[Rfam]
RNA sequence: AGAACUACCCAAACACAAGCACUGACUUGAGUUUGUAUGCAGUAAGUGCUACUUGUGGGGUGUUUUG
Numbered sequence: 001a002g003a004a005c006u007a008c009c010c011a012a013a014c015a016c017a018a019g020c021a022c023u024g025a026c027u028u029g030a031g032u033u034u035g036u037a038u039g040c041a042g043u044a045a046g047u048g049c050u051a052c053u054u055g056u057g058g059g060g061u062g063u064u065u066u067g
Base pairs, nucleotide, nucleotide: 004063005062007061008060009059010058013056014055015054018050019049020048021047022046023045025043026042027041
Rfam assigns this 67-nucleotide sequence from Etheostoma spectabile to the family "miR-430 microRNA precursor family". Pairs were carried over by alignment from the consensus structure, which was predicted with RNAalifold. It scores 51 bits against the family's covariance model. Clan: mir-290 clan. Its family is annotated with RISC complex and miRNA-mediated post-transcriptional gene silencing in the Gene Ontology.